[Rfam]
7SK RNA: a 332-nucleotide RNA from Vidua chalybeata.
The family is grouped with related families in Rfam's "7SK clan".
By type it is a non-coding RNA gene.
The base pairs follow the family's consensus structure, which is taken from published work.
RNA sequence: AGAUGUGAGGGUGAUCUGGCUGUGACAUCUGUCACCCCACUGCUCUCCAGGGUUGAUUCAGCUGAGCUGGCUGGCUAGGUGGGUGUCCCCUUCCUCCCCCAAUGCUCCCCCCGUGUGUCCCUCCUGAGGCUGCACACUCGGUCACAGAGGAUGAUGUCCCCAAUAGAGAUGGCACCAUUCAUCGGUCAAGGGUGUACAGCAGCUGUGCUCCCCUGCCACAACCUCCAAACAGGCUCCAGGUCCAUUUGUAGGAGAACAUGAGGUAGUCAAGCUUCCAAGACUGCAGACACAUCUAAGUGAGGCACUCCAUGGGGCAGUUUUCCACUUUUCUU
Numbered sequence: 001a002g003a004u005g006u007g008a009g010g011g012u013g014a015u016c017u018g019g020c021u022g023u024g025a026c027a028u029c030u031g032u033c034a035c036c037c038c039a040c041u042g043c044u045c046u047c048c049a050g051g052g053u054u055g056a057u058u059c060a061g062c063u064g065a066g067c068u069g070g071c072u073g074g075c076u077a078g079g080u081g082g083g084u085g086u087c088c089c090c091u092u093c094c095u096c097c098c099c100c101a102a103u104g105c106u107c108c109c110c111c112c113g114u115g116u117g118u119c120c121c122u123c124c125u126g127a128g129g130c131u132g133c134a135c136a137c138u139c140g141g142u143c144a145c146a147g148a149g150g151a152u153g154a155u156g157u158c159c160c161c162a163a164u165a166g167a168g169a170u171g172g173c174a175c176c177a178u179u180c181a182u183c184g185g186u187c188a189a190g191g192g193u194g195u196a197c198a199g200c201a202g203c204u205g206u207g208c209u210c211c212c213c214u215g216c217c218a219c220a221a222c223c224u225c226c227a228a229a230c231a232g233g234c235u236c237c238a239g240g241u242c243c244a245u246u247u248g249u250a251g252g253a254g255a256a257c258a259u260g261a262g263g264u265a266g267u268c269a270a271g272c273u274u275c276c277a278a279g280a281c282u283g284c285a286g287a288c289a290c291a292u293c294u295a296a297g298u299g300a301g302g303c304a305c306u307c308c309a310u311g312g313g314g315c316a317g318u319u320u321u322c323c324a325c326u327u328u329u330c331u332u
Stems, first nucleotide, its partner, number of pairs: 002107002006101002009098003013093002018090002024087010035074002037070003042067004047061001118172002121168003124141004129137001142163001149159003202272003208266002211263002214260002223254004229249005295332003299327002301323002304318003308314001